Shown here is a 97-nucleotide sequence from Methylobacterium oryzihabitans, a member of the family "Glycine riboswitch aptamer". It scores 59 bits against the family's covariance model. The pairing is the family consensus, mapped onto this sequence. Lineage of the source: Bacteria > Pseudomonadati > Hyphomicrobiales > Methylobacteriaceae > Methylobacterium.
[Rfam]
RNA sequence: CAGGACGACACGGGAGAGACCGGAGGUCGCGAGACAUCCGGCGCCGACGGAGCAACCGCCCCGGAAACUCUCAGGCACCCAGGACCGUGCCGUCCGG
Numbered sequence: 001c002a003g004g005a006c007g008a009c010a011c012g013g014g015a016g017a018g019a020c021c022g023g024a025g026g027u028c029g030c031g032a033g034a035c036a037u038c039c040g041g042c043g044c045c046g047a048c049g050g051a052g053c054a055a056c057c058g059c060c061c062c063g064g065a066a067a068c069u070c071u072c073a074g075g076c077a078c079c080c081a082g083g084a085c086c087g088u089g090c091c092g093u094c095c096g097g
Stems, first nucleotide, its partner, number of pairs: 006092002009089005020041004043076003046072002050070003056064002